[Rfam]
RNA sequence: UGCAGCCCAGUCAAAUUCGGUCCCUGUCCCCCCAUGGCGGGGACCGGCCACCGGCUGCCACAGCGACCUCCGUGGCAGCGAGCCUCGUGUCCCCUCCCGUGGGACCCGGGGGGUGAAUCCCACUGGAGACAUGG
Numbered sequence: 001u002g003c004a005g006c007c008c009a010g011u012c013a014a015a016u017u018c019g020g021u022c023c024c025u026g027u028c029c030c031c032c033c034a035u036g037g038c039g040g041g042g043a044c045c046g047g048c049c050a051c052c053g054g055c056u057g058c059c060a061c062a063g064c065g066a067c068c069u070c071c072g073u074g075g076c077a078g079c080g081a082g083c084c085u086c087g088u089g090u091c092c093c094c095u096c097c098c099g100u101g102g103g104a105c106c107c108g109g110g111g112g113g114u115g116a117a118u119c120c121c122a123c124u125g126g127a128g129a130c131a132u133g134g
Stems, first nucleotide, its partner, number of pairs: 002058004018046011070126003075121001083112002086108002
A member of the RNA family "Small nucleolar RNA SNORA5" from Rhipidura dahli, 134 nucleotides long. ACA5 is a member of the H/ACA class of snoRNA that guide the sites of modification of uridines to pseudouridines. The family's RNA type in Rfam is H/ACA-box small nucleolar RNA. It scores 56 bits against the family's covariance model. Pairs were carried over by alignment from the consensus structure, which was predicted with RNAfold. Rfam links the family to the GO terms RNA processing and nucleolus. Lineage of the source: Eukaryota > Deuterostomia > Telluraves > Rhipiduridae > Rhipidura.